Notes:
The record is a 266-nucleotide part of an RNA from Methanococcus aeolicus, which matches "Archaeal large subunit ribosomal RNA" in Rfam.
[Rfam]
Nucleotides: 266
Stems, first nucleotide, its partner, number of pairs: 001157008011143004017047008048101005056095001058093001063088005068081005104138003111131005175261004180194004200254003203250005208244003216237005223230001
Number, partner (000 for none) and nucleotide at each position: 001157g002156g003155c004154u005153g006152u007151c008150u009000g010000a011143g012142g013141g014140a015000a016000a017047g018046g019045u020044g021043g022042u023041u024040c025000u026000a027000g028000u029000a030000c031000g032000a033000g034000a035000g036000g037000a038000a039000c040024g041023a042022g043021c044020c045019g046018c047017c048101g049100g050099u051098g052097c053000c054000u055000c056095u057000a058093g059000u060000u061000u062000a063088u064087c065086g066085g067084u068081u069080g070079u071078c072077c073000g074000a075000c076000a077072g078071g079070g080069c081068a082000u083000u084067g085066c086065c087064g088063a089000g090000c091000c092000g093058c094000c095056a096000c097052g098051c099050a100049c101048c102000a103000a104138g105137g106136g107000a108000u109000a110000a111131g112130a113129g114128c115127u116000g117000a118000a119000a120000g121000c122000a123000u124000c125000u126000a127115a128114g129113c130112u131111c132000g133000a134000a135000g136106u137105c138104c139000a140014u141013c142012c143011u144000g145000a146000a147000a148000a149000c150008a151007g152006a153005c154004a155003g156002c157001c158000g159000u160000c161000c162000u163000u164000c165000u166000a167000g168000g169000a170000g171000g172000c173000g174000a175261g176260g177259g178258g179000u180194c181193c182192c183191a184000u185000a186000g187000a188000a189000g190000a191183u192182g193181g194180g195000u196000u197000u198000g199000a200254u201253a202252g203250g204249c205248u206247a207246g208244g209243a210242a211000u212000g213000u214000a215000a216237g217236c218235a219234u220233c221000a222000a223230g224000g225000u226000u227000u228000u229000c230223c231000g232000a233220g234219a235218u236217g237216u238000u239000u240000a241000g242210u243209u244208c245000g246207c247206u248205a249204g250203u251000a252202c253201u254200a255000a256000c257000c258178c259177c260176c261175c262000a263000a264000g265000a266000g